[Rfam]
RNA: Class I RNA from Dictyostelium
Organism: Polysphondylium violaceum
RNA sequence: GUUCUCCUUACAGCAAUUAACAUUCUCUCUACUAUUAAAGAAAACCCUUGGGAACUG
Numbered sequence: 001g002u003u004c005u006c007c008u009u010a011c012a013g014c015a016a017u018u019a020a021c022a023u024u025c026u027c028u029c030u031a032c033u034a035u036u037a038a039a040g041a042a043a044a045c046c047c048u049u050g051g052g053a054a055c056u057g
Stems, first nucleotide, its partner, number of pairs: 001055006